[Rfam]
This 385-nucleotide RNA sequence from Schizosaccharomyces pombe belongs to the Rfam family "RNase MRP". The base pairs follow the family's consensus structure, which is taken from published work.

RNA sequence: UGAGCUCGAACGAUCGUGGUUGAAGCAGUCAUACAGGAAUUUUUAUUCCUCUAAACAGCUUUAGGGAAAGUCCCCGGACUCUUGCGUCUUGAUCUCCAUGGAGAUUGGGACAGGCGGUAACGUGCUGACUUGAAGAAUCAGCGGUUUCAUUAAUGGCGCUAGUUUUUCCUUUAGCCUUUGUACUUUAAACCUCAAGAGAUAUAACUCCUUGUCCAGAAUGAGUAGAUAAGGAAUACAGUCUAUGAGUUGUGUUUCUUGAGCGUCUAGUGUACGAACGGUAUGGUUGAUUACGCCAUUUCUGAAUUGUGGUUUUUCGUCGUAGUUGAUAGUUAUACGGUCGCAUCCAUUUGUUGAUGUAUCACAAUGGGGCUUAGUCUCGUGCUCA
Numbered sequence: 001u002g003a004g005c006u007c008g009a010a011c012g013a014u015c016g017u018g019g020u021u022g023a024a025g026c027a028g029u030c031a032u033a034c035a036g037g038a039a040u041u042u043u044u045a046u047u048c049c050u051c052u053a054a055a056c057a058g059c060u061u062u063a064g065g066g067a068a069a070g071u072c073c074c075c076g077g078a079c080u081c082u083u084g085c086g087u088c089u090u091g092a093u094c095u096c097c098a099u100g101g102a103g104a105u106u107g108g109g110a111c112a113g114g115c116g117g118u119a120a121c122g123u124g125c126u127g128a129c130u131u132g133a134a135g136a137a138u139c140a141g142c143g144g145u146u147u148c149a150u151u152a153a154u155g156g157c158g159c160u161a162g163u164u165u166u167u168c169c170u171u172u173a174g175c176c177u178u179u180g181u182a183c184u185u186u187a188a189a190c191c192u193c194a195a196g197a198g199a200u201a202u203a204a205c206u207c208c209u210u211g212u213c214c215a216g217a218a219u220g221a222g223u224a225g226a227u228a229a230g231g232a233a234u235a236c237a238g239u240c241u242a243u244g245a246g247u248u249g250u251g252u253u254u255c256u257u258g259a260g261c262g263u264c265u266a267g268u269g270u271a272c273g274a275a276c277g278g279u280a281u282g283g284u285u286g287a288u289u290a291c292g293c294c295a296u297u298u299c300u301g302a303a304u305u306g307u308g309g310u311u312u313u314u315c316g317u318c319g320u321a322g323u324u325g326a327u328a329g330u331u332a333u334a335c336g337g338u339c340g341c342a343u344c345c346a347u348u349u350g351u352u353g354a355u356g357u358a359u360c361a362c363a364a365u366g367g368g369g370c371u372u373a374g375u376c377u378c379g380u381g382c383u384c385a
Stems, first nucleotide, its partner, number of pairs: 001385005007379003012339006020064007035050006068372003072369004085116004207231006233311001240306001242304002249299001251297001260293004276286004341356004346351001